Shown here is a 160-nucleotide RNA from Cynara cardunculus, a member of the family "U1 spliceosomal RNA". It scores 139 bits against the family's covariance model. The family's RNA type in Rfam is spliceosomal small nuclear RNA. Rfam's curators write: U1 is a small nuclear RNA (snRNA) component of the spliceosome (involved in pre-mRNA splicing). Its family is annotated with U1 snRNP, mRNA 5'-splice site recognition and pre-mRNA 5'-splice site binding in the Gene Ontology. The family's consensus secondary structure is taken from published work. Lineage of the source: Eukaryota > Euphyllophyta > Spermatophyta > Gunneridae > Cynara cardunculus subsp. cardunculus.
[Rfam]
RNA sequence: AUACUUACCUGGACGGGAUCAAUGGAUGAUCAAAAAGGCCUAUGGUCUAGGUUGGUGACCUCCAUUGCACUUUGGAGGGGUGCCCGCCUAAGGUCGACCCAAGUGGUCGAGCCUACGUCAUAAUUUGUGGCAGCGGAGGCUUGCGUUCGCGCGGCCUCUA
Numbered sequence: 001a002u003a004c005u006u007a008c009c010u011g012g013a014c015g016g017g018a019u020c021a022a023u024g025g026a027u028g029a030u031c032a033a034a035a036a037g038g039c040c041u042a043u044g045g046u047c048u049a050g051g052u053u054g055g056u057g058a059c060c061u062c063c064a065u066u067g068c069a070c071u072u073u074g075g076a077g078g079g080g081u082g083c084c085c086g087c088c089u090a091a092g093g094u095c096g097a098c099c100c101a102a103g104u105g106g107u108c109g110a111g112c113c114u115a116c117g118u119c120a121u122a123a124u125u126u127g128u129g130g131c132a133g134c135g136g137a138g139g140c141u142u143g144c145g146u147u148c149g150c151g152c153g154g155c156c157u158c159u160a
Base pairs, nucleotide, nucleotide: 012119013118014117015116016048017047018046019045020044021043023042024041025040027038049089050088051087053086055083056082057081059079060078061077062075063074091114092113093112094110095109096108098106099105135159136158137157138156139155142153143152144151145150